[Rfam]
This 206-nucleotide sequence from Bacillus sp. BT1B_CT2 belongs to the Rfam family "SR1 sRNA".
The family's consensus secondary structure is taken from published work.
By type it is a small RNA.
RNA sequence: AACAAAUUUAAACGCUUCCAUUUUGAAAAGAAAAGGGGAAUGAAAGAUGGGCACGAUCGUUUGUCAAGACUGCAAUGAAACCAUUCAGCAUUUUGAAGAUGAGAAAGUGACGAUACUUUACGGAACGUGCGGACAGUGCAACUGCCAUCUUAAAGAGGAAGAAUAGAAAAAAGCAUGCGGCCAUUUACAGUGCCGCAUGCUUUUAU
Numbered sequence: 001a002a003c004a005a006a007u008u009u010a011a012a013c014g015c016u017u018c019c020a021u022u023u024u025g026a027a028a029a030g031a032a033a034a035g036g037g038g039a040a041u042g043a044a045a046g047a048u049g050g051g052c053a054c055g056a057u058c059g060u061u062u063g064u065c066a067a068g069a070c071u072g073c074a075a076u077g078a079a080a081c082c083a084u085u086c087a088g089c090a091u092u093u094u095g096a097a098g099a100u101g102a103g104a105a106a107g108u109g110a111c112g113a114u115a116c117u118u119u120a121c122g123g124a125a126c127g128u129g130c131g132g133a134c135a136g137u138g139c140a141a142c143u144g145c146c147a148u149c150u151u152a153a154a155g156a157g158g159a160a161g162a163a164u165a166g167a168a169a170a171a172a173g174c175a176u177g178c179g180g181c182c183a184u185u186u187a188c189a190g191u192g193c194c195g196c197a198u199g200c201u202u203u204u205a206u
Stems, first nucleotide, its partner, number of pairs: 012108002016105003024097001027094004048083003054077002060075002131150003134144002169204013
Dot-bracket structure: ...........((..(((.....(..((((.................(((...((....((............))))...))).......))))..).....))).))......................(((((.......))...)))..................(((((((((((((..........)))))))))))))..